The record is an 84-nucleotide RNA sequence from Hucho hucho, which matches "Small nucleolar RNA snR60/Z15/Z230/Z193/J17" in Rfam. A search with the family's covariance model found it, with a score of 57 bits.
RNA sequence: CUGAUACAAUGAUGACUGCAUAGUUCAGCAGAUUAACCAUGACGAGCUACCAGCAUUGUCUUUCGCUCCUAUCUGAUAUAUUGG
Numbered sequence: 001c002u003g004a005u006a007c008a009a010u011g012a013u014g015a016c017u018g019c020a021u022a023g024u025u026c027a028g029c030a031g032a033u034u035a036a037c038c039a040u041g042a043c044g045a046g047c048u049a050c051c052a053g054c055a056u057u058g059u060c061u062u063u064c065g066c067u068c069c070u071a072u073c074u075g076a077u078a079u080a081u082u083g084g
Stems, first nucleotide, its partner, number of pairs: 004081003008077001

The source organism's lineage runs through Eukaryota, Deuterostomia, Clupeocephala, Protacanthopterygii and Hucho. A reference for the family is Lowe and Eddy (1999), "A computational screen for methylation guide snoRNAs in yeast", Science.